[Rfam]
RNA sequence: AAUAGUUUUAUGCCACAUCAGUAUUCUUAUCCUGAAUUUUAGGAUUUUAUCCUUAAAAAAAUCAAAUCCAAAUUAAAAUACUGAAAUUCAGGAUAAAUUUCUGAAAUUCAGGAUAAGAAUAUUGAUGUGGCAUAAAACUAUU
Numbered sequence: 001a002a003u004a005g006u007u008u009u010a011u012g013c014c015a016c017a018u019c020a021g022u023a024u025u026c027u028u029a030u031c032c033u034g035a036a037u038u039u040u041a042g043g044a045u046u047u048u049a050u051c052c053u054u055a056a057a058a059a060a061a062u063c064a065a066a067u068c069c070a071a072a073u074u075a076a077a078a079u080a081c082u083g084a085a086a087u088u089c090a091g092g093a094u095a096a097a098u099u100u101c102u103g104a105a106a107u108u109c110a111g112g113a114u115a116a117g118a119a120u121a122u123u124g125a126u127g128u129g130g131c132a133u134a135a136a137a138c139u140a141u142u
Stems, first nucleotide, its partner, number of pairs: 001142027029114011041102002044098004
RNA: MIR7504 microRNA precursor family